[Rfam]
A member of the RNA family "MIR5269 microRNA precursor family" from Medicago truncatula, 80 nucleotides long.

RNA sequence: UUGGGUUAAAUCAAUGUGGAUCAUACACUUUGAAAAUGGAAUUAACAUAAAAUGGUGAAACCUAUAUUAAUUUUAUCCAA
Numbered sequence: 001u002u003g004g005g006u007u008a009a010a011u012c013a014a015u016g017u018g019g020a021u022c023a024u025a026c027a028c029u030u031u032g033a034a035a036a037u038g039g040a041a042u043u044a045a046c047a048u049a050a051a052a053u054g055g056u057g058a059a060a061c062c063u064a065u066a067u068u069a070a071u072u073u074u075a076u077c078c079a080a
Base pairs, nucleotide, nucleotide: 001080002079003078004077005076006075008073009072010071011070013068014067015066016065017064018063024057025056026054027053029051030050031049032048
Source information:
The base pairs follow the family's consensus structure, which was predicted with RNAalifold. The organism belongs to Medicago, within Eukaryota. Rfam links the family to the GO terms miRNA-mediated post-transcriptional gene silencing and RISC complex.